[Rfam]
RNA sequence: CCCCUGGAGUAUCAGACCAAAUGAAAGUAGCAUAUGCAAAAUCAGAUACUAUGAAUGGGGAA
Dot-bracket structure: ((((....(((((........(((.....((....))....)))))))).......))))..

Notes: RAGATH-18 RNA: a 62-nucleotide RNA from Clostridium luticellarii. Rfam describes the family as follows. Actinobacteria, Firmicutes, Fusobacteria, Thermotogae (1 example). It scores 67 bits against the family's covariance model.